[Rfam]
Shown here is a 116-nucleotide RNA sequence from Brachypodium distachyon, a member of the family "MIR5070 microRNA precursor family". Its family is annotated with miRNA-mediated post-transcriptional gene silencing and RISC complex in the Gene Ontology. Clan: MIR2863 microRNA precursor clan. NCBI's taxonomy places the organism under Eukaryota, Liliopsida, commelinids, Brachypodieae, Brachypodium. The family has 2 seed sequences and 266 matches in Rfam 15.1.

RNA sequence: CAGGAUACCAUUUGACUCUCCUUAGUUCAACCAAAUGAACUAAAAUUUUAAAAUGACACAACUUUUUAAAAAACUAGUUCAUUUGUUUGAACUAAGUGGAGUUAAAGGAUACCCUG
Numbered sequence: 001c002a003g004g005a006u007a008c009c010a011u012u013u014g015a016c017u018c019u020c021c022u023u024a025g026u027u028c029a030a031c032c033a034a035a036u037g038a039a040c041u042a043a044a045a046u047u048u049u050a051a052a053a054u055g056a057c058a059c060a061a062c063u064u065u066u067u068a069a070a071a072a073a074c075u076a077g078u079u080c081a082u083u084u085g086u087u088u089g090a091a092c093u094a095a096g097u098g099g100a101g102u103u104a105a106a107g108g109a110u111a112c113c114c115u116g
Stems, first nucleotide, its partner, number of pairs: 002115003006111002009108001011106009021096010032085011